[Rfam]
RNA sequence: UUACCAUGAAGGGAACUCCCUCCAGCCCACUAAUGGAUGUGAUUAAGGAAAUGAAUUAGCUGCCGACUCAUUCAUUUAACCACUUAGUAGAAAAAGAUUAAUUUUAUGCUACUUUGAUUGAGUGAAUGAUGCGGGAGAUAGUUUUCAUCCCUUGCUAAUCCGUGCUUGGACUGAAGGGAGCUCCCUCAUUUUUUCUC
Numbered sequence: 001u002u003a004c005c006a007u008g009a010a011g012g013g014a015a016c017u018c019c020c021u022c023c024a025g026c027c028c029a030c031u032a033a034u035g036g037a038u039g040u041g042a043u044u045a046a047g048g049a050a051a052u053g054a055a056u057u058a059g060c061u062g063c064c065g066a067c068u069c070a071u072u073c074a075u076u077u078a079a080c081c082a083c084u085u086a087g088u089a090g091a092a093a094a095a096g097a098u099u100a101a102u103u104u105u106a107u108g109c110u111a112c113u114u115u116g117a118u119u120g121a122g123u124g125a126a127u128g129a130u131g132c133g134g135g136a137g138a139u140a141g142u143u144u145u146c147a148u149c150c151c152u153u154g155c156u157a158a159u160c161c162g163u164g165c166u167u168g169g170a171c172u173g174a175a176g177g178g179a180g181c182u183c184c185c186u187c188a189u190u191u192u193u194u195c196u197c
Base pairs, nucleotide, nucleotide: 013183014182016180017179018178019177020176023173024172025171027169028168029167036160060137061136063134064133065132069128070127071126072125077120